[Rfam]
RNA sequence: UAUAGUAGGUCCUCAGUAUAGUCGCCAGUAAGCCCUCAGUAUUUUCCUUAAUCAGGCUCCACUGUGGGCAGCACUGCUUGUCUGGAGCCUGAGAGGUUUAUGAAAAUGUGGUAGGUGAAGUAAGGUCAGGGGGCCUGGCA
Numbered sequence: 001u002a003u004a005g006u007a008g009g010u011c012c013u014c015a016g017u018a019u020a021g022u023c024g025c026c027a028g029u030a031a032g033c034c035c036u037c038a039g040u041a042u043u044u045u046c047c048u049u050a051a052u053c054a055g056g057c058u059c060c061a062c063u064g065u066g067g068g069c070a071g072c073a074c075u076g077c078u079u080g081u082c083u084g085g086a087g088c089c090u091g092a093g094a095g096g097u098u099u100a101u102g103a104a105a106a107u108g109u110g111g112u113a114g115g116u117g118a119a120g121u122a123a124g125g126u127c128a129g130g131g132g133g134c135c136u137g138g139c140a
Base pairs, nucleotide, nucleotide: 001140003138006137007136008135009134010133011132012131013130014129021126022125023124052092053091054090055089056088057087059085060084064081065080066079067078068077069076070075
RNA: small Cajal body-specific RNA 17
Organism: Heterocephalus glaber